[Rfam]
RNA sequence: GCAGACGGCUAAGAGAGCCAUCUGUUGACAGUCGUCAAUUGCCCACUGUCAUGGAGUUGCUCUCUUCAGAUGCCUGC
Dot-bracket structure: ..........((((.(((..((((..(((.((............)).))).))))...))).))))...........